The family of this 92-nucleotide sequence from Planomicrobium sp. CPCC 101110 is "pan motif". The family's RNA type in Rfam is cis-regulatory element.
[Rfam]
RNA sequence: AGGGCAGUAUCUGAAGAGAACUGCACCAGUAAGGCUAUUGGCAUUUCAAAUGAAUAGUUCUGCCUUGAUCUUAACGCGACAGGGACGGAGGA
Numbered sequence: 001a002g003g004g005c006a007g008u009a010u011c012u013g014a015a016g017a018g019a020a021c022u023g024c025a026c027c028a029g030u031a032a033g034g035c036u037a038u039u040g041g042c043a044u045u046u047c048a049a050a051u052g053a054a055u056a057g058u059u060c061u062g063c064c065u066u067g068a069u070c071u072u073a074a075c076g077c078g079a080c081a082g083g084g085a086c087g088g089a090g091g092a
Base pairs, nucleotide, nucleotide: 002027003026004024005023006022007021008020010019011018060088061087062086063084064083065082066081067080069079070078